RNA sequence: AUACACAAGCAGAAGCACCCGCUUCUCACCUGAUUGACGCGCCAAGCAGUUGGCAGGUUUGAAUGUAAUGAUUAAUGGCCAUUAUACGGCUAUUUCAAUGCGGGUAUGCUCAUAUACCCGCAUUUUUUAUUGCCU
Numbered sequence: 001a002u003a004c005a006c007a008a009g010c011a012g013a014a015g016c017a018c019c020c021g022c023u024u025c026u027c028a029c030c031u032g033a034u035u036g037a038c039g040c041g042c043c044a045a046g047c048a049g050u051u052g053g054c055a056g057g058u059u060u061g062a063a064u065g066u067a068a069u070g071a072u073u074a075a076u077g078g079c080c081a082u083u084a085u086a087c088g089g090c091u092a093u094u095u096c097a098a099u100g101c102g103g104g105u106a107u108g109c110u111c112a113u114a115u116a117c118c119c120g121c122a123u124u125u126u127u128u129a130u131u132g133c134c135u
Stems, first nucleotide, its partner, number of pairs: 011026006028058003036051003039047002099122010
Ribosomal protein L20 leader: a 135-nucleotide RNA from Bacillaceae bacterium SAS-127. The family's consensus secondary structure was predicted with CMfinder. Rfam links the family to the GO term regulation of gene expression. Taxonomically the source falls in Bacillaceae (Bacteria, Bacillota, Bacilli, Caryophanales). From the family's description: This family is a putative r-protein leader autoregulatory structure found in B. subtilis and other low-GC Gram-positive bacteria. It is located in the 5' untranslated regions of mRNAs encoding initiation factor 3 followed by ribosomal proteins L35 and L20 (infC-rpmI-rplT).